[Rfam]
RNA: Bacterial small signal recognition particle RNA
Organism: Corynebacterium sp. ED61
RNA sequence: GACAGGAUUCCGUGCGGCGGUUAUCUCAUGAACUCCCCCAGGGCAGGAAUGCAGCAAGGGUCAGUGAGCUCUACCGGGUGCGCGGGGUCCCCUUUUUAU
Numbered sequence: 001g002a003c004a005g006g007a008u009u010c011c012g013u014g015c016g017g018c019g020g021u022u023a024u025c026u027c028a029u030g031a032a033c034u035c036c037c038c039c040a041g042g043g044c045a046g047g048a049a050u051g052c053a054g055c056a057a058g059g060g061u062c063a064g065u066g067a068g069c070u071c072u073a074c075c076g077g078g079u080g081c082g083c084g085g086g087g088u089c090c091c092c093u094u095u096u097u098a099u
Stems, first nucleotide, its partner, number of pairs: 004093003009086006015078001018076004025068005035060003043052003